The family of this 289-nucleotide RNA from Thiobacillus denitrificans is "Bacterial RNase P class A". The match comes from Rfam's covariance-model search (239 bits).
RNA sequence: AAAGCCAGUUAGACAACCGCUGCCACGCAAGUGGGAGAGGAAAGUCCGGGCUCCACAGAGCAGGAUGCCGGCUAACGGCCGGACGCCGCGAGGCGAGGAAUAGGGCCACAGAGACGAGCGUAUUCAGUUACGGUGAAACGCGGUAACCUCCAUCCGGAGCAACACCAAAUAGGCAGACGAUGACGCGGCUCGCCGAGUCUGCGGGUAGGUGGCUGGAGCCGGUCAGCAAUGACCGGCCUAGAGGAAUGGUUGUCCACGACAGAACCCGGCUUAUCGACCGACUUUCCCA
Numbered sequence: 001a002a003a004g005c006c007a008g009u010u011a012g013a014c015a016a017c018c019g020c021u022g023c024c025a026c027g028c029a030a031g032u033g034g035g036a037g038a039g040g041a042a043a044g045u046c047c048g049g050g051c052u053c054c055a056c057a058g059a060g061c062a063g064g065a066u067g068c069c070g071g072c073u074a075a076c077g078g079c080c081g082g083a084c085g086c087c088g089c090g091a092g093g094c095g096a097g098g099a100a101u102a103g104g105g106c107c108a109c110a111g112a113g114a115c116g117a118g119c120g121u122a123u124u125c126a127g128u129u130a131c132g133g134u135g136a137a138a139c140g141c142g143g144u145a146a147c148c149u150c151c152a153u154c155c156g157g158a159g160c161a162a163c164a165c166c167a168a169a170u171a172g173g174c175a176g177a178c179g180a181u182g183a184c185g186c187g188g189c190u191c192g193c194c195g196a197g198u199c200u201g202c203g204g205g206u207a208g209g210u211g212g213c214u215g216g217a218g219c220c221g222g223u224c225a226g227c228a229a230u231g232a233c234c235g236g237c238c239u240a241g242a243g244g245a246a247u248g249g250u251u252g253u254c255c256a257c258g259a260c261a262g263a264a265c266c267c268g269g270c271u272u273a274u275c276g277a278c279c280g281a282c283u284u285u286c287c288c289a
Stems, first nucleotide, its partner, number of pairs: 001285004006280001008278003011274001012254007020037002023034004042272003046269005051159004058191004063155005068082005084095004098150002103148002105144003119132004163211004173202006185193002218237008
By type it is a ribozyme.